[Rfam]
RNase MRP: a 399-nucleotide RNA sequence from Gymnopilus dilepis. The organism belongs to Gymnopilus, within Eukaryota. The base pairs follow the family's consensus structure, which is taken from published work. RNase MRP is an enzymatically active ribonucleoprotein with two distinct roles in eukaryotes. The family's RNA type in Rfam is ribozyme.
RNA sequence: GUGCUGUCCGAAGAAUCGCUAUCGCAGCUUGCGCACUGGAAAGCUCUCUGCUUUUCGCCUUCAGCUGUGGGGAAAGUCCCCGGAGAUACAGAGCAUAUCCUCAACCAUUCUACGGAAAGCGACCGGCUCCAAGCACGACGGUACUGGUUGGGGAUGGGCGAGAUGUCCUGGCGGGUCGCGAACUUUCCAGGUCGCGUCUGCCUCCUUCUCGUUCCACUCUGUGGCUUUGUCUGACGGGCUACCAACGACUAAGGCGCAAGUGCGCGAAGAUAUGAGCGUGCUUGUUGCUCGUUGGUUUGUUUCGAAGGAUUGGCCAUUCGUUGCUCAUAGACACAGUUAUGCGAUUGAUGAAUCUCUUUGUCGAAUCAUCAACUCAAUGGGGCUCACUCUCAGCCAGCA
Numbered sequence: 001g002u003g004c005u006g007u008c009c010g011a012a013g014a015a016u017c018g019c020u021a022u023c024g025c026a027g028c029u030u031g032c033g034c035a036c037u038g039g040a041a042a043g044c045u046c047u048c049u050g051c052u053u054u055u056c057g058c059c060u061u062c063a064g065c066u067g068u069g070g071g072g073a074a075a076g077u078c079c080c081c082g083g084a085g086a087u088a089c090a091g092a093g094c095a096u097a098u099c100c101u102c103a104a105c106c107a108u109u110c111u112a113c114g115g116a117a118a119g120c121g122a123c124c125g126g127c128u129c130c131a132a133g134c135a136c137g138a139c140g141g142u143a144c145u146g147g148u149u150g151g152g153g154a155u156g157g158g159c160g161a162g163a164u165g166u167c168c169u170g171g172c173g174g175g176u177c178g179c180g181a182a183c184u185u186u187c188c189a190g191g192u193c194g195c196g197u198c199u200g201c202c203u204c205c206u207u208c209u210c211g212u213u214c215c216a217c218u219c220u221g222u223g224g225c226u227u228u229g230u231c232u233g234a235c236g237g238g239c240u241a242c243c244a245a246c247g248a249c250u251a252a253g254g255c256g257c258a259a260g261u262g263c264g265c266g267a268a269g270a271u272a273u274g275a276g277c278g279u280g281c282u283u284g285u286u287g288c289u290c291g292u293u294g295g296u297u298u299g300u301u302u303c304g305a306a307g308g309a310u311u312g313g314c315c316a317u318u319c320g321u322u323g324c325u326c327a328u329a330g331a332c333a334c335a336g337u338u339a340u341g342c343g344a345u346u347g348a349u350g351a352a353u354c355u356c357u358u359u360g361u362c363g364a365a366u367c368a369u370c371a372a373c374u375c376a377a378u379g380g381g382g383c384u385c386a387c388u389c390u391c392a393g394c395c396a397g398c399a
Base pairs, nucleotide, nucleotide: 002399003398004397005396006395008393010391011390014346015345016344017343018342019341022070023069024068025067026066027065028064038056039055040054041053042052043051044050075384076383078382079381080380081379243294244293245292246291247290248289250287251286252285262281263280264279265278348369349368350367351366353364